[Rfam]
RNA sequence: UUUCCAUUAAGUAGUCCCGUACGUUGAAAUUUUCACGUACGGUUUGGACAAUAUGGAGAAAUGAAUGUUACUCUUUUUGCAAUGACGCUGAAACAUAUUUUCGCUUUGUUAGCCAUAAGUUUAAAACAAUU
Numbered sequence: 001u002u003u004c005c006a007u008u009a010a011g012u013a014g015u016c017c018c019g020u021a022c023g024u025u026g027a028a029a030u031u032u033u034c035a036c037g038u039a040c041g042g043u044u045u046g047g048a049c050a051a052u053a054u055g056g057a058g059a060a061a062u063g064a065a066u067g068u069u070a071c072u073c074u075u076u077u078u079g080c081a082a083u084g085a086c087g088c089u090g091a092a093a094c095a096u097a098u099u100u101u102c103g104c105u106u107u108g109u110u111a112g113c114c115a116u117a118a119g120u121u122u123a124a125a126a127c128a129a130u131u
Stems, first nucleotide, its partner, number of pairs: 001059007011049002014045001017042003021038003025035003068124003073119003079113002081110005087104002090102004
RNA: Caenorhabditis sRNA ceN93